[Rfam]
RNA sequence: CCGGCCGCGGCAGUCCGGGGCUCAUAACCUGUUGACGCGCGCAGCCCGCGGGCAGUCCCUGCGGGCCGCGCGGCGCUAACGGGGUGUGGGACCCGGACUGACGCGGCCGG
Numbered sequence: 001c002c003g004g005c006c007g008c009g010g011c012a013g014u015c016c017g018g019g020g021c022u023c024a025u026a027a028c029c030u031g032u033u034g035a036c037g038c039g040c041g042c043a044g045c046c047c048g049c050g051g052g053c054a055g056u057c058c059c060u061g062c063g064g065g066c067c068g069c070g071c072g073g074c075g076c077u078a079a080c081g082g083g084g085u086g087u088g089g090g091a092c093c094c095g096g097a098c099u100g101a102c103g104c105g106g107c108c109g110g
Stems, first nucleotide, its partner, number of pairs: 001110009011100009021090006028083007036075003039071004044066009
Rfam assigns this 110-nucleotide RNA sequence from Chlamydomonas reinhardtii to the family "MIR1151 microRNA precursor family". The sequence is in the family's curated seed alignment. The literature on the family includes a 2007 paper in Nature by Molnar et al., "miRNAs control gene expression in the single-cell alga Chlamydomonas reinhardtii". Lineage of the source: Eukaryota > core chlorophytes > Chlamydomonadales > Chlamydomonadaceae > Chlamydomonas. The family has 2 seed sequences and 7 matches in Rfam 15.1.